[Rfam]
Rfam assigns this 140-nucleotide RNA sequence from Streptococcus henryi to the family "FMN riboswitch aptamer (RFN element)".

RNA sequence: AUAUUUCUUCGGGGCAGGGUGAAAUUCCCGACCGGCGGUGACAAGGGUGUUUAGUAAAACAUUGAUUGAAGUCCGUGAGCGAAAGCUGAUCUGGUGUGAUUCCAGAACCGACAGUAAAGUCUGGAUGGGAGAAGAAAAUC
Number, nucleotide and partner (000 for none) at each position: 001a000002u000003a000004u137005u136006u135007c134008u133009u132010c131011g000012g000013g000014g000015c000016a000017g029018g028019g027020u000021g000022a000023a000024a000025u000026u000027c019028c018029c017030g000031a120032c119033c110034g109035g076036c075037g074038g073039u000040g000041a000042c000043a000044a000045g000046g000047g000048u000049g000050u000051u000052u000053a000054g000055u000056a000057a000058a000059a000060c000061a000062u000063u000064g000065a000066u000067u000068g000069a000070a000071g108072u107073c038074c037075g036076u035077g000078a000079g086080c085081g000082a000083a000084a000085g080086c079087u000088g000089a000090u106091c105092u104093g103094g102095u000096g000097u000098g000099a000100u000101u000102c094103c093104a092105g091106a090107a072108c071109c034110g033111a000112c123113a122114g121115u000116a000117a000118a000119g032120u031121c114122u113123g112124g000125a000126u000127g000128g000129g000130a000131g010132a009133a008134g007135a006136a005137a004138a000139u000140c000